[Rfam]
RNA sequence: GAACGCAGACGACAAAGAGAGCCAUCUGUUGACAGUCAUAUAUUGCAACUGUCAUGGAAUUGCUCUCUUUACAUGCCUGUGU
Numbered sequence: 001g002a003a004c005g006c007a008g009a010c011g012a013c014a015a016a017g018a019g020a021g022c023c024a025u026c027u028g029u030u031g032a033c034a035g036u037c038a039u040a041u042a043u044u045g046c047a048a049c050u051g052u053c054a055u056g057g058a059a060u061u062g063c064u065c066u067c068u069u070u071a072c073a074u075g076c077c078u079g080u081g082u
Stems, first nucleotide, its partner, number of pairs: 014070005020064003025058004031053003035049002
Annotation: This 82-nucleotide sequence from Brugia malayi belongs to the Rfam family "mir-46/mir-47/mir-281 microRNA precursor family". Lineage of the source: Eukaryota > Bilateria > Chromadorea > Spirurina > Brugia. The base pairs follow the family's consensus structure, which was predicted with RNAalifold. Rfam links the family to the GO terms RISC complex and miRNA-mediated post-transcriptional gene silencing.